[Rfam]
RNA sequence: GGGAGAUGAGGAGUGGUAUAAGCUCGCAAUUACUAUGCGAGAGGUGUGCCCGCCCCAACUAAGCCUGUUACGACAGCAGGGGCACCACAAUGACUUUACCAUCUGAUCCC
Number, nucleotide and partner (000 for none) at each position: 001g110002g109003g108004a107005g000006a000007u000008g000009a000010g000011g000012a000013g000014u101015g100016g099017u098018a097019u000020a000021a000022g000023c041024u040025c039026g038027c037028a000029a000030u000031u000032a000033c000034u000035a000036u000037g027038c026039g025040a024041g023042a000043g000044g088045u087046g086047u084048g083049c081050c080051c000052g000053c000054c000055c000056c000057a000058a000059c000060u000061a000062a000063g000064c000065c079066u078067g077068u076069u000070a000071c000072g000073a000074c000075a000076g068077c067078a066079g065080g050081g049082g000083c048084a047085c000086c046087a045088c044089a000090a000091u000092g000093a000094c000095u000096u000097u018098a017099c016100c015101a014102u000103c000104u000105g000106a000107u004108c003109c002110c001

This 110-nucleotide sequence from Miscanthus lutarioriparius belongs to the Rfam family "Small nucleolar RNA Z279/snoR105/snoR108". The match comes from Rfam's covariance-model search (90 bits). The organism belongs to Miscanthus, within Eukaryota. Its Rfam clan is "snoU13 clan". This family includes the plant snoRNAs known as Z279, snoR105 and snoR108. The family's consensus secondary structure was predicted with PFOLD. Gene Ontology terms of the family: RNA processing and nucleolus.